[Rfam]
RNA sequence: GAGACGCGUCGUGACUGACGGGCUAACGUGGGGCACCACGGGGAAGCGGCGCGCACAUACAAGCCGACCGUCUGGGCAAGCCGU
Numbered sequence: 001g002a003g004a005c006g007c008g009u010c011g012u013g014a015c016u017g018a019c020g021g022g023c024u025a026a027c028g029u030g031g032g033g034c035a036c037c038a039c040g041g042g043g044a045a046g047c048g049g050c051g052c053g054c055a056c057a058u059a060c061a062a063g064c065c066g067a068c069c070g071u072c073u074g075g076g077c078a079a080g081c082c083g084u
Base pairs, nucleotide, nucleotide: 005053006052007051008050009049010048011047012046015043016042017072018071019070020069021068028039029038030037031036063077064076065075